[Rfam]
RNA sequence: CAUAUAAUAUAGUGGACUAGGGUCCAAUUAGUUUCAAAAGCCCCUGCUUGAAAGGGGCUUUUUUCGUUUUUGUGAUAUGAAAAAUGGGCUACAGGCCCUUUUUUU
Numbered sequence: 001c002a003u004a005u006a007a008u009a010u011a012g013u014g015g016a017c018u019a020g021g022g023u024c025c026a027a028u029u030a031g032u033u034u035c036a037a038a039a040g041c042c043c044c045u046g047c048u049u050g051a052a053a054g055g056g057g058c059u060u061u062u063u064u065c066g067u068u069u070u071u072g073u074g075a076u077a078u079g080a081a082a083a084a085u086g087g088g089c090u091a092c093a094g095g096c097c098c099u100u101u102u103u104u105u
Stems, first nucleotide, its partner, number of pairs: 037061009086098004
RNA: Gammaprotebacteria rimP leader
Organism: Opacimonas viscosa